RNA sequence: AACGACAGUGAUGAGUACUUACAGACCUGUAAUGAUUCUUGCGGAUAUGAUCGCUUGAACUUAUGAACAUCUAAGGGACUGAGUCGUU
Numbered sequence: 001a002a003c004g005a006c007a008g009u010g011a012u013g014a015g016u017a018c019u020u021a022c023a024g025a026c027c028u029g030u031a032a033u034g035a036u037u038c039u040u041g042c043g044g045a046u047a048u049g050a051u052c053g054c055u056u057g058a059a060c061u062u063a064u065g066a067a068c069a070u071c072u073a074a075g076g077g078a079c080u081g082a083g084u085c086g087u088u
Stems, first nucleotide, its partner, number of pairs: 002087005

The family of this 88-nucleotide RNA from Eragrostis curvula is "Small nucleolar RNA SNORD25". By type it is a C/D-box small nucleolar RNA. The organism belongs to Eragrostis, within Eukaryota. Rfam 15.1 lists 985 matches to the family in 241 species.